The family of this 135-nucleotide sequence from Echinops telfairi is "Small nucleolar RNA U109". On this family, see Gu et al., Nucleic Acids Res 2005: "A novel experimental approach for systematic identification of box H/ACA snoRNAs from eukaryotes". Rfam's curators put it in the seed alignment. NCBI's taxonomy places the organism under Eukaryota, Dipnotetrapodomorpha, Tetrapoda, Afrosoricida, Echinops. Pairs were carried over by alignment from the consensus structure, which was predicted with WAR.
[Rfam]
RNA sequence: CUGCAUGUGGAAAUAUCUGCUCCUCAUUUCGUUAGGAGCAGGAAGACAUCCAUAACAUGCUACAUUAAUAAAGGAGUUCUCAGGGCUACCAACCUUACAGUAGAGGUUGAGUAGUAGUAUAUUUCUCUUACACAA
Numbered sequence: 001c002u003g004c005a006u007g008u009g010g011a012a013a014u015a016u017c018u019g020c021u022c023c024u025c026a027u028u029u030c031g032u033u034a035g036g037a038g039c040a041g042g043a044a045g046a047c048a049u050c051c052a053u054a055a056c057a058u059g060c061u062a063c064a065u066u067a068a069u070a071a072a073g074g075a076g077u078u079c080u081c082a083g084g085g086c087u088a089c090c091a092a093c094c095u096u097a098c099a100g101u102a103g104a105g106g107u108u109g110a111g112u113a114g115u116a117g118u119a120u121a122u123u124u125c126u127c128u129u130a131c132a133c134a135a
Base pairs, nucleotide, nucleotide: 003060004059005058006057007056008055016042017041018040019039020038021037022036023035073128074127075126076125085115086114089111090109091108092107093106094105095104096103